Rfam assigns this 88-nucleotide RNA sequence from Kibdelosporangium aridum to the family "Glycine riboswitch aptamer". Pairs were carried over by alignment from the consensus structure. NCBI's taxonomy places the organism under Bacteria, Bacillati, Pseudonocardiales, Pseudonocardiaceae, Kibdelosporangium.
RNA sequence: CGAGCCGCGGCGGGAGAGUCUCCGCACAGGAGCACCGAAGGAGCAAGCCUCCCCGCAAUCUCUCAGGUACAGCUACCGCCGUGGCCAG
Numbered sequence: 001c002g003a004g005c006c007g008c009g010g011c012g013g014g015a016g017a018g019u020c021u022c023c024g025c026a027c028a029g030g031a032g033c034a035c036c037g038a039a040g041g042a043g044c045a046a047g048c049c050u051c052c053c054c055g056c057a058a059u060c061u062c063u064c065a066g067g068u069a070c071a072g073c074u075a076c077c078g079c080c081g082u083g084g085c086c087a088g
Base pairs, nucleotide, nucleotide: 006083007082008081009080010079011078012077013076020032021031022030023029034068035067036066037064038063041062042061043060047056048055